Bacterial small signal recognition particle RNA: a 99-nucleotide sequence from Leptospirillum ferriphilum. Taxonomically the source falls in Leptospirillum ferriphilum (Bacteria, Pseudomonadati, Nitrospiraceae, Leptospirillum sp. Group III). The base pairs follow the family's consensus structure, which is taken from published work.

[Rfam]
RNA sequence: AGCCAGGCUCCGUGCAACAGGGCCCCGUGAACCCCGCCAGGUCCGGAAGGAAGCAACGGUAGCGGAUUGCUCCGUGUGCCCCGGAAUGACCUGGUUCCC
Number, nucleotide and partner (000 for none) at each position: 001a000002g000003c000004c093005a092006g091007g090008c000009u085010c084011c083012g082013u000014g080015c076016a000017a075018c074019a000020g072021g071022g070023c000024c000025c065026c064027g063028u062029g000030a000031a000032c000033c000034c059035c058036g057037c000038c000039a000040g000041g000042u051043c050044c049045g000046g000047a000048a000049g044050g043051a042052a000053g000054c000055a000056a000057c036058g035059g034060u000061a000062g028063c027064g026065g025066a000067u000068u000069g000070c022071u021072c020073c000074g018075u017076g015077u000078g000079c000080c014081c000082c012083g011084g010085a009086a000087u000088g000089a000090c007091c006092u005093g004094g000095u000096u000097c000098c000099c000